[Rfam]
RNA: Eukaryotic small subunit ribosomal RNA, nucleotides 1727 to 1873
RNA sequence: CCGCCCGUCGCUCCUACCGAUCGGACGGCGAGGUGAAGACGACGGACUGUAUCCUUCACGGGACGCGGAAAGUCGUUUAAACCUUGUUGUCUAGAGGAAGGAGAAGUCGUAACAAGGUAUCGGUAGGUGAACCUGCAGAAGGAUCAA
Numbered sequence: 001c002c003g004c005c006c007g008u009c010g011c012u013c014c015u016a017c018c019g020a021u022c023g024g025a026c027g028g029c030g031a032g033g034u035g036a037a038g039a040c041g042a043c044g045g046a047c048u049g050u051a052u053c054c055u056u057c058a059c060g061g062g063a064c065g066c067g068g069a070a071a072g073u074c075g076u077u078u079a080a081a082c083c084u085u086g087u088u089g090u091c092u093a094g095a096g097g098a099a100g101g102a103g104a105a106g107u108c109g110u111a112a113c114a115a116g117g118u119a120u121c122g123g124u125a126g127g128u129g130a131a132c133c134u135g136c137a138g139a140a141g142g143a144u145c146a147a
Stems, first nucleotide, its partner, number of pairs: 001116001003113001006109002009106001011103005017097002021093001023092012037078007047068004052063004118141001120139002123136005